[Rfam]
RNA: Bacillaceae-1 RNA
RNA sequence: AUAAAAGGAAUAACGGCUAAUAUCGCCACGUCGUGUGGCAACGCCGUUAUGACUCUCAUCGUGCGAG
Number, nucleotide and partner (000 for none) at each position: 001a000002u000003a000004a000005a000006a000007g000008g000009a000010a000011u049012a048013a047014c046015g045016g044017c043018u000019a000020a000021u000022a000023u000024c000025g039026c038027c037028a036029c035030g000031u000032c000033g000034u000035g029036u028037g027038g026039c025040a000041a000042c000043g017044c016045c015046g014047u013048u012049a011050u000051g000052a000053c067054u066055c065056u000057c063058a000059u000060c000061g000062u000063g057064c000065g055066a054067g053